[Rfam]
RNA: PreQ1 (pre queuosine) riboswitch aptamer
RNA sequence: GUGCGCGUGGUUCGCAAUCAUCCCACGUAAAAAAACUAGCAGGAG
Numbered sequence: 001g002u003g004c005g006c007g008u009g010g011u012u013c014g015c016a017a018u019c020a021u022c023c024c025a026c027g028u029a030a031a032a033a034a035a036c037u038a039g040c041a042g043g044a045g
Stems, first nucleotide, its partner, number of pairs: 006027005016037001